[Rfam]
RNA sequence: AAUACCAGAACGGGAGAACGGGGAUUCGUCCCCGUGCCGAAGGAGCAACCGCCCCGGUAAACUCUCAGGCCUCAGGACCGUUCUGGUAAC
Numbered sequence: 001a002a003u004a005c006c007a008g009a010a011c012g013g014g015a016g017a018a019c020g021g022g023g024a025u026u027c028g029u030c031c032c033c034g035u036g037c038c039g040a041a042g043g044a045g046c047a048a049c050c051g052c053c054c055c056g057g058u059a060a061a062c063u064c065u066c067a068g069g070c071c072u073c074a075g076g077a078c079c080g081u082u083c084u085g086g087u088a089a090c
Base pairs, nucleotide, nucleotide: 006085007084008083009082010081011080012079013078019034020033021032022031036070037069038068039066040065043064044063045062049057050056
RNA: Glycine riboswitch aptamer